This 65-nucleotide RNA sequence from Isobaculum melis belongs to the Rfam family "Enterococcus sRNA A9". Pairs were carried over by alignment from the consensus structure, which was predicted with RNAfold. By type it is an antisense RNA. The match comes from Rfam's covariance-model search (56 bits).

RNA sequence: GCGAAAUGAUAUUAGUUUUACAUGAAUAGCACAAAAGCCAAUCCUAUUGCGAGUAGGAUUGGCUU
Numbered sequence: 001g002c003g004a005a006a007u008g009a010u011a012u013u014a015g016u017u018u019u020a021c022a023u024g025a026a027u028a029g030c031a032c033a034a035a036a037g038c039c040a041a042u043c044c045u046a047u048u049g050c051g052a053g054u055a056g057g058a059u060u061g062g063c064u065u
Stems, first nucleotide, its partner, number of pairs: 006019001008017002035065012